[Rfam]
RNA sequence: GCCAUUCUUUUCUUGGGGUUGUGCUACUGUCCAAUGAAUGUGUGGUGAGGACAGUACUGCUAACGCCUACACAACACACCUGCAUCAACUAAAGCUCUGCUUUAUGUUGGUGCAAUUUUU
Numbered sequence: 001g002c003c004a005u006u007c008u009u010u011u012c013u014u015g016g017g018g019u020u021g022u023g024c025u026a027c028u029g030u031c032c033a034a035u036g037a038a039u040g041u042g043u044g045g046u047g048a049g050g051a052c053a054g055u056a057c058u059g060c061u062a063a064c065g066c067c068u069a070c071a072c073a074a075c076a077c078a079c080c081u082g083c084a085u086c087a088a089c090u091a092a093a094g095c096u097c098u099g100c101u102u103u104a105u106g107u108u109g110g111u112g113c114a115a116u117u118u119u120u
Stems, first nucleotide, its partner, number of pairs: 006018004021060003026055007038046002082113006090104006

The family of this 120-nucleotide sequence from Chrysochloris asiatica is "U4atac minor spliceosomal RNA". Pairs were carried over by alignment from the consensus structure, which is taken from published work. Rfam 15.1 lists 1,648 matches to the family in 818 species. By type it is a spliceosomal small nuclear RNA. Its Rfam clan is "U4 clan". Lineage of the source: Eukaryota > Opisthokonta > Teleostomi > Euteleostomi > Chrysochloris. Rfam links the family to the GO terms pre-mRNA 5'-splice site binding, U4atac snRNP and spliceosomal tri-snRNP complex assembly.